[Rfam]
Nucleotides: 109
Base pairs, nucleotide, nucleotide: 001109002108003107006104007103049076050075051074052073053072054071055070056069057068058067059066060065
Number, partner (000 for none) and nucleotide at each position: 001109c002108u003107u004000c005000u006104g007103c008000g009000g010000u011000g012000a013000u014000g015000a016000g017000u018000u019000a020000u021000g022000a023000a024000u025000g026000a027000a028000a029000u030000u031000c032000a033000c034000a035000u036000g037000u038000c039000a040000g041000a042000c043000u044000u045000c046000a047000g048000a049076g050075a051074u052073u053072u054071u055070u056069c057068u058067u059066u060065u061000c062000u063000c064000g065060g066059a067058a068057g069056g070055a071054a072053a073052a074051g075050u076049c077000u078000a079000u080000g081000a082000g083000a084000a085000u086000g087000a088000a089000u090000a091000u092000u093000c094000a095000u096000a097000u098000u099000c100000u101000g102000a103007g104006c105000c106000u107003g108002a109001g

Small nucleolar RNA R64/Z200 family: a 109-nucleotide RNA sequence from Cucurbita maxima.
On this family, see Galardi et al., Mol Cell Biol 2002: "Purified box C/D snoRNPs are able to reproduce site-specific 2'-O-methylation of target RNA in vitro".
The organism belongs to Cucurbita, within Eukaryota.
The family's RNA type in Rfam is C/D-box small nucleolar RNA.
Gene Ontology terms of the family: RNA processing and nucleolus.